[Rfam]
RNA sequence: AUAAUAAUAAGAGAUACGCUCACCACUGUUAUCUCAUCUCGCGCGAAAAAUGUCUUGGGAGGAUACAGAUCUCGGGCGCGCUUCACGCUGCUGCCGCUCUCUACUAGCCAAAAUAAGCAAGUUGAGUACAGAGAUCACGUCGCGAUUACUCUAAAAGCAAGGCUUUCGGGCCUUGUUUUUUUU
Number, nucleotide and partner (000 for none) at each position: 001a000002u000003a000004a183005u000006a181007a000008u000009a000010a000011g035012a034013g033014a032015u031016a030017c000018g000019c000020u000021c000022a000023c000024c000025a000026c000027u000028g000029u000030u016031a015032u014033c013034u012035c011036a000037u000038c000039u000040c000041g000042c144043g143044c142045g141046a000047a000048a000049a000050a000051u000052g064053u063054c062055u061056u000057g000058g000059g000060a000061g055062g054063a053064u052065a000066c000067a000068g136069a135070u134071c133072u132073c000074g000075g092076g091077c090078g088079c087080g086081c000082u000083u000084c000085a000086c080087g079088c078089u000090g077091c076092u075093g000094c126095c000096g000097c000098u000099c000100u000101c000102u000103a000104c000105u000106a000107g000108c000109c000110a000111a000112a000113a000114u000115a000116a000117g000118c000119a000120a000121g000122u000123u000124g000125a000126g094127u000128a000129c000130a000131g000132a072133g071134a070135u069136c068137a000138c000139g000140u000141c045142g044143c043144g042145a000146u000147u000148a000149c000150u000151c000152u000153a000154a000155a000156a177157g176158c175159a174160a173161g172162g171163c170164u000165u000166u000167c000168g000169g000170g163171c162172c161173u160174u159175g158176u157177u156178u000179u000180u000181u006182u000183u004
A member of the RNA family "Alphaproteobacterial sRNA ar9" from Cohaesibacter celericrescens, 183 nucleotides long.
A search with the family's covariance model found it, with a score of 55 bits.
Taxonomically the source falls in Cohaesibacter (Bacteria, Pseudomonadati, Pseudomonadota, Cohaesibacteraceae).
It is annotated as a small RNA.